[Rfam]
RNA sequence: UAGAAGGGUUUCCAUCAUGUGUAAAUGAUGAUCAGUUGAUUGAGAGAAUGGCUGGGUGGAAUGGUGAUCAAUACAUUCCAGAGGCAUAAUAUUUUACCGAAUGGGACAGUUGGCUAUAAACAUUGGCUGACAUCCUG
Numbered sequence: 001u002a003g004a005a006g007g008g009u010u011u012c013c014a015u016c017a018u019g020u021g022u023a024a025a026u027g028a029u030g031a032u033c034a035g036u037u038g039a040u041u042g043a044g045a046g047a048a049u050g051g052c053u054g055g056g057u058g059g060a061a062u063g064g065u066g067a068u069c070a071a072u073a074c075a076u077u078c079c080a081g082a083g084g085c086a087u088a089a090u091a092u093u094u095u096a097c098c099g100a101a102u103g104g105g106a107c108a109g110u111u112g113g114c115u116a117u118a119a120a121c122a123u124u125g126g127c128u129g130a131c132a133u134c135c136u137g
Stems, first nucleotide, its partner, number of pairs: 008085005013030005032055007040047001057080007104135003109131005117125003
RNA: U11 spliceosomal RNA